A member of the RNA family "c-di-AMP riboswitch aptamer (ydaO/yuaA leader)" from Streptomyces gardneri, 146 nucleotides long. The base pairs follow the family's consensus structure.
RNA sequence: CGUGCGCACGCGCCGAAUCCUGAAAAGGAACCGGGGAACCACCAUUUGGGGUGAAUCAGGCCCUUCGCACCCGUGCGACGAGCCCGUAGGAGACCUUCCUGCUCCGAACCCGUCAGCUAACCCGGUAGGCGAGAAGGAAGGAAAGG
Numbered sequence: 001c002g003u004g005c006g007c008a009c010g011c012g013c014c015g016a017a018u019c020c021u022g023a024a025a026a027g028g029a030a031c032c033g034g035g036g037a038a039c040c041a042c043c044a045u046u047u048g049g050g051g052u053g054a055a056u057c058a059g060g061c062c063c064u065u066c067g068c069a070c071c072c073g074u075g076c077g078a079c080g081a082g083c084c085c086g087u088a089g090g091a092g093a094c095c096u097u098c099c100u101g102c103u104c105c106g107a108a109c110c111c112g113u114c115a116g117c118u119a120a121c122c123c124g125g126u127a128g129g130c131g132a133g134a135a136g137g138a139a140g141g142a143a144a145g146g
Stems, first nucleotide, its partner, number of pairs: 011131004018029003030126006040048002049111003057086001059084002089105004